[Rfam]
RNA sequence: AACUGUCCACUGGGGUGCCAUCUGGCUGAGAAAAUACCCAUUGAACCUGAAUCUAGAUAAUUCUAGCGUAGGAACGUGGCUGAUUCGAAAUA
Numbered sequence: 001a002a003c004u005g006u007c008c009a010c011u012g013g014g015g016u017g018c019c020a021u022c023u024g025g026c027u028g029a030g031a032a033a034a035u036a037c038c039c040a041u042u043g044a045a046c047c048u049g050a051a052u053c054u055a056g057a058u059a060a061u062u063c064u065a066g067c068g069u070a071g072g073a074a075c076g077u078g079g080c081u082g083a084u085u086c087g088a089a090a091u092a
Base pairs, nucleotide, nucleotide: 007079008078009077010076011040012039013038014037016034017026018025019024046072047071048070049069053066054065055064056063
Dot-bracket structure: ......((((((((.((((....))).......)..)))).....((((...((((......))))..))))...)))).............
Source information: The family of this 92-nucleotide sequence from Nicoliella spurrieriana is "TPP riboswitch aptamer (THI element)". The base pairs follow the family's consensus structure, which is taken from published work. Rfam links the family to the GO term thiamine pyrophosphate binding. The source organism's lineage runs through Bacteria, Bacillati, Bacillota, Lactobacillaceae and Nicoliella. It scores 65 bits against the family's covariance model.